[Rfam]
RNA sequence: GUAUUGGCGGGUGCAGCAUCCUUAAGAUUCACAAACUUCAAGGGACGCUUUGUUUACUCUUACUCGAAGUUUUCUGUCUUGUGGGAAUCUUGAUGAUGCUGCAUCCGCAAAUAU
Numbered sequence: 001g002u003a004u005u006g007g008c009g010g011g012u013g014c015a016g017c018a019u020c021c022u023u024a025a026g027a028u029u030c031a032c033a034a035a036c037u038u039c040a041a042g043g044g045a046c047g048c049u050u051u052g053u054u055u056a057c058u059c060u061u062a063c064u065c066g067a068a069g070u071u072u073u074c075u076g077u078c079u080u081g082u083g084g085g086a087a088u089c090u091u092g093a094u095g096a097u098g099c100u101g102c103a104u105c106c107g108c109a110a111a112u113a114u
Stems, first nucleotide, its partner, number of pairs: 010105011022093009032083002

The record is a 114-nucleotide RNA sequence from Carya illinoinensis, which matches "mir-172 microRNA precursor family" in Rfam. For this family Rfam cites "Computational Identification of Plant MicroRNAs and Their Targets, Including a Stress-Induced miRNA" (Jones-Rhoades and Bartel, Mol Cell, 2004). From the family's description: mir-172 has been experimentally verified in Arabidopsis thaliana. This family is thought to target mRNAs coding for APETALA2-like transcription factors. The mature sequence is excised from the 3' arm of the hairpin. The source organism's lineage runs through Eukaryota, Tracheophyta, eudicotyledons, Pentapetalae and Carya. Its family is annotated with miRNA-mediated post-transcriptional gene silencing and RISC complex in the Gene Ontology.